[Rfam]
RNA sequence: UACAGUUCUCAGGGCGGGGUGAAAUUCCCCACCGGCGGUAACGGGGCAUGCCCCCGAAGCCCGCGAGCGCAACGGGUUUCCAGCGGAAAUCCCUUGGUCAAGCAGAUCUGGUGUAAGUCCAGAGCCGACGGUCAAAGUCCGGAUGGAAGAGAGCGUAA
Numbered sequence: 001u002a003c004a005g006u007u008c009u010c011a012g013g014g015c016g017g018g019g020u021g022a023a024a025u026u027c028c029c030c031a032c033c034g035g036c037g038g039u040a041a042c043g044g045g046g047c048a049u050g051c052c053c054c055c056g057a058a059g060c061c062c063g064c065g066a067g068c069g070c071a072a073c074g075g076g077u078u079u080c081c082a083g084c085g086g087a088a089a090u091c092c093c094u095u096g097g098u099c100a101a102g103c104a105g106a107u108c109u110g111g112u113g114u115a116a117g118u119c120c121a122g123a124g125c126c127g128a129c130g131g132u133c134a135a136a137g138u139c140c141g142g143a144u145g146g147a148a149g150a151g152a153g154c155g156u157a158a
Stems, first nucleotide, its partner, number of pairs: 005154006017029003031138002033127002035064004059125002067103002107123005129141003
Overview
The record is a 158-nucleotide RNA sequence from Roseovarius litorisediminis, which matches "FMN riboswitch aptamer (RFN element)" in Rfam. Pairs were carried over by alignment from the consensus structure, which is taken from published work. The RFN element is a highly conserved domain that is found frequently in the 5'-untranslated regions of prokaryotic mRNAs that encode for flavin mononucleotide (FMN) biosynthesis and transport proteins. This element is a metabolite-dependent riboswitch that directly binds FMN in the absence of proteins. In Bacillus subtilis, the riboswitch most likely controls gene expression by causing premature transcription termination within the 5' untranslated region of the ribDEAHT operon and precluding access to the ribosome-binding site of ypaA mRNA.The FMN riboswitch structure, reported in present an FMN-bound six-stem junction, adopts a butterfly-like scaffold, stapled together by opposingly directed but nearly identically folded peripheral domains. Gene Ontology term of the family: FMN binding. A search with the family's covariance model found it, with a score of 110 bits.